Notes:
This 129-nucleotide RNA from Microcaecilia unicolor belongs to the Rfam family "Small nucleolar RNA SNORA65". Its Rfam clan is "SNORA65 clan". Pairs were carried over by alignment from the consensus structure, which was predicted with RNAalifold. By type it is an H/ACA-box small nucleolar RNA. A search with the family's covariance model found it, with a score of 85 bits. Gene Ontology terms of the family: RNA processing and nucleolus. The family has 14 seed sequences and 1,089 matches in Rfam 15.1. U65 belongs to the H/ACA class of snoRNAs which are thought to guide the sites of modification of uridines to pseudouridines.
[Rfam]
RNA sequence: CCCGCCACUAUGCUUGUCUGAUAAGUGACUAGUGUAGUCCAGUGGUGAGCUAAGAGCAAACUCUUCCUUAGGAAACAGAACUGGUCUUUAUGCUGUGAGUAGUUCUGUGCCGAAAGGUUGGAGACACCG
Numbered sequence: 001c002c003c004g005c006c007a008c009u010a011u012g013c014u015u016g017u018c019u020g021a022u023a024a025g026u027g028a029c030u031a032g033u034g035u036a037g038u039c040c041a042g043u044g045g046u047g048a049g050c051u052a053a054g055a056g057c058a059a060a061c062u063c064u065u066c067c068u069u070a071g072g073a074a075a076c077a078g079a080a081c082u083g084g085u086c087u088u089u090a091u092g093c094u095g096u097g098a099g100u101a102g103u104u105c106u107g108u109g110c111c112g113a114a115a116g117g118u119u120g121g122a123g124a125c126a127c128c129g
Stems, first nucleotide, its partner, number of pairs: 005045005018032003022027001062122003066117004071111002076107006085098002